[Rfam]
Shown here is a 96-nucleotide sequence from Marinicauda salina, a member of the family "Bacterial small signal recognition particle RNA".
Gene Ontology terms of the family: signal recognition particle, plasma membrane targeting and SRP-dependent cotranslational protein targeting to membrane, signal sequence recognition.
Rfam describes the family as follows. The signal recognition particle (SRP) is a universally conserved ribonucleoprotein involved in the co-translational targeting of proteins to membranes.
Rfam classes the family as a non-coding RNA gene.
The family is grouped with related families in Rfam's "SRP clan".
The match comes from Rfam's covariance-model search (68 bits).
RNA sequence: GAAGGCCGGCGGCGGACGAGCCCCUCGCCAACCCGGUCAGGUCCGGAAGGAAGCAGCCGUAACGAGUUCGGCUCGGGUCGUCGUCCGGUCUUCCGC
Numbered sequence: 001g002a003a004g005g006c007c008g009g010c011g012g013c014g015g016a017c018g019a020g021c022c023c024c025u026c027g028c029c030a031a032c033c034c035g036g037u038c039a040g041g042u043c044c045g046g047a048a049g050g051a052a053g054c055a056g057c058c059g060u061a062a063c064g065a066g067u068u069c070g071g072c073u074c075g076g077g078u079c080g081u082c083g084u085c086c087g088g089u090c091u092u093c094c095g096c
Stems, first nucleotide, its partner, number of pairs: 003091005009084006017075006024066004034059004042051003